pemK RNA: a 95-nucleotide sequence.
RNA sequence: AUAAUGAUACUUCUGUCAAGUCGAACUUGAGCGUUAAAAGCGUCGCACGUCAGAUGGCAGUCCGGACGUAUGUCGGGAAGGUGUAACUCCUAUGG
Numbered sequence: 001a002u003a004a005u006g007a008u009a010c011u012u013c014u015g016u017c018a019a020g021u022c023g024a025a026c027u028u029g030a031g032c033g034u035u036a037a038a039a040g041c042g043u044c045g046c047a048c049g050u051c052a053g054a055u056g057g058c059a060g061u062c063c064g065g066a067c068g069u070a071u072g073u074c075g076g077g078a079a080g081g082u083g084u085a086a087c088u089c090c091u092a093u094g095g
Stems, first nucleotide, its partner, number of pairs: 012092001013060006061078003065074003079091003